RNA sequence: UGGUUCGGACAAUUGCGGGGCACUUCGGUGCUUUGAGGAAAGUCCAUGCUCGCACAACCUGCGAUGGUUGUAGUGAUCGUGCUACACGAAAAGAUAAGUGUAGGCAGCGUCGUGCUGACGGCAGAAGGAACGCCUAAGUCUUCGGAUAUGGCCGAAACUUCUUGAAAGUGCCACAGUGACGGAGCCUUACUGGAAACAGUAAGGGUGGAACGAGGUAAACCCCACGAGCGAGAAACCCAAAUUUGGUAGGGGAAUUUCCGGAGCGGAACUGAACGCGAAGGAGAGCGUAUGUAAAUACGGAGAUAGAUGAUUGUCGCCCACGUGUGAGGGUCAAACCGUUUGCAACACUAGGGAACAGAACAUGGCUUACAGGA
Numbered sequence: 001u002g003g004u005u006c007g008g009a010c011a012a013u014u015g016c017g018g019g020g021c022a023c024u025u026c027g028g029u030g031c032u033u034u035g036a037g038g039a040a041a042g043u044c045c046a047u048g049c050u051c052g053c054a055c056a057a058c059c060u061g062c063g064a065u066g067g068u069u070g071u072a073g074u075g076a077u078c079g080u081g082c083u084a085c086a087c088g089a090a091a092a093g094a095u096a097a098g099u100g101u102a103g104g105c106a107g108c109g110u111c112g113u114g115c116u117g118a119c120g121g122c123a124g125a126a127g128g129a130a131c132g133c134c135u136a137a138g139u140c141u142u143c144g145g146a147u148a149u150g151g152c153c154g155a156a157a158c159u160u161c162u163u164g165a166a167a168g169u170g171c172c173a174c175a176g177u178g179a180c181g182g183a184g185c186c187u188u189a190c191u192g193g194a195a196a197c198a199g200u201a202a203g204g205g206u207g208g209a210a211c212g213a214g215g216u217a218a219a220c221c222c223c224a225c226g227a228g229c230g231a232g233a234a235a236c237c238c239a240a241a242u243u244u245g246g247u248a249g250g251g252g253a254a255u256u257u258c259c260g261g262a263g264c265g266g267a268a269c270u271g272a273a274c275g276c277g278a279a280g281g282a283g284a285g286c287g288u289a290u291g292u293a294a295a296u297a298c299g300g301a302g303a304u305a306g307a308u309g310a311u312u313g314u315c316g317c318c319c320a321c322g323u324g325u326g327a328g329g330g331u332c333a334a335a336c337c338g339u340u341u342g343c344a345a346c347a348c349u350a351g352g353g354a355a356c357a358g359a360a361c362a363u364g365g366c367u368u369a370c371a372g373g374a
Stems, first nucleotide, its partner, number of pairs: 004374003007370001008315007016035006040368003044365005049232005054071006077227005082103006104119001105117005120222002123162004132152003138147003168220002170216003185204008236251003255284005286299005317353003322348004
Dot-bracket structure: ...(((((((((((.((((((........))))))....[[[.[[[[[(((((((((((......)))))).....(((((((((((..........))))))((((((...))))).)((.((((.....(((...(((....)))..)))......)))).....(((((............((((((((....)))))))).........)))..))))))))))))))...(((..........)))...(((((....................))))).(((((....))))).........))))))).(((..((((...................))))..))).......]]]]]]]].).)))

Source information
Rfam assigns this 374-nucleotide RNA from Exiguobacterium artemiae to the family "Bacterial RNase P class B". Rfam's curators put it in the seed alignment. Taxonomically the source falls in Exiguobacterium artemiae (Bacteria, Bacillota, Caryophanales, Exiguobacterium). It is annotated as a ribozyme. Ribonuclease P (RNase P) is a ubiquitous endoribonuclease, found in archaea, bacteria and eukarya as well as chloroplasts and mitochondria. Its best characterised activity is the generation of mature 5'-ends of tRNAs by cleaving the 5'-leader elements of precursor-tRNAs.